[Rfam]
The record is a 421-nucleotide sequence from Candidatus Cardinium hertigii, which matches "Bacterial RNase P class A" in Rfam. By type it is a ribozyme. Rfam's curators write: Ribonuclease P (RNase P) is a ubiquitous endoribonuclease, found in archaea, bacteria and eukarya as well as chloroplasts and mitochondria.

RNA sequence: GAAGCGGUCAGCUAUCCGUUUGGGUUAGCCGAAGAGGAAAGUCCGGGCAAUAGAGAGCGCCCUACUUCCUAACGGGAAGGCAUGGGGUAGUAGAUGACCCUGUGACAGCAAGUGCCACAGAAAAUAAACCGCUUGUUACAUUAGCUGAUGAUGUAGCAAGUAAGGGUGAAACGGUGCGGUAAGAGCGCACCGCUCUAUUGGUGACAAUAGAGGCAUGGUAAACCUUAGGGAUUGCAAGGCCAAGUAGGCAUACCUCUGCUUGCGUAGGUAAGUAGGACGGGCUGCUCGUCUGUUUUUCUUUUAUUAGAAAGGGUAUGCGGGUAGGCUGCUAGAGGGUCUAAGUGAUUAGGCCCCCAGAUAAAUGACAAGCAAGUGUAUCUGUUUUGCACUACAGAACCCGGCUUAUAGGCUUACUUUUCUU
Numbered sequence: 001g002a003a004g005c006g007g008u009c010a011g012c013u014a015u016c017c018g019u020u021u022g023g024g025u026u027a028g029c030c031g032a033a034g035a036g037g038a039a040a041g042u043c044c045g046g047g048c049a050a051u052a053g054a055g056a057g058c059g060c061c062c063u064a065c066u067u068c069c070u071a072a073c074g075g076g077a078a079g080g081c082a083u084g085g086g087g088u089a090g091u092a093g094a095u096g097a098c099c100c101u102g103u104g105a106c107a108g109c110a111a112g113u114g115c116c117a118c119a120g121a122a123a124a125u126a127a128a129c130c131g132c133u134u135g136u137u138a139c140a141u142u143a144g145c146u147g148a149u150g151a152u153g154u155a156g157c158a159a160g161u162a163a164g165g166g167u168g169a170a171a172c173g174g175u176g177c178g179g180u181a182a183g184a185g186c187g188c189a190c191c192g193c194u195c196u197a198u199u200g201g202u203g204a205c206a207a208u209a210g211a212g213g214c215a216u217g218g219u220a221a222a223c224c225u226u227a228g229g230g231a232u233u234g235c236a237a238g239g240c241c242a243a244g245u246a247g248g249c250a251u252a253c254c255u256c257u258g259c260u261u262g263c264g265u266a267g268g269u270a271a272g273u274a275g276g277a278c279g280g281g282c283u284g285c286u287c288g289u290c291u292g293u294u295u296u297u298c299u300u301u302u303a304u305u306a307g308a309a310a311g312g313g314u315a316u317g318c319g320g321g322u323a324g325g326c327u328g329c330u331a332g333a334g335g336g337u338c339u340a341a342g343u344g345a346u347u348a349g350g351c352c353c354c355c356a357g358a359u360a361a362a363u364g365a366c367a368a369g370c371a372a373g374u375g376u377a378u379c380u381g382u383u384u385u386g387c388a389c390u391a392c393a394g395a396a397c398c399c400g401g402c403u404u405a406u407a408g409g410c411u412u413a414c415u416u417u418u419c420u421u
Stems, first nucleotide, its partner, number of pairs: 001417004006411004010406001011370003017364001019034003023030002039404003043401005048234004056305002060230005065079005080106001081104008107225002112223002114219003129165002131161013173191006192214001193212008238327004248318006297311001299309003334353008
Dot-bracket structure: ((((.((((([[[...[.(((.((....)).)))....(((.(((((((((....[[..((((((((((.....)))))(((((((((........)))))))).)((...(((((............(((((((((((((((.....)))))))))))))..)).......((((((.......))))))(((((((((....)))))))).)..)))..)))))))))))))...((((......((((((...........................................(.(((..]].))).).)))))).....))))......((((((((....))))))))..........]...]]]..........................)))))))).).))))..))))....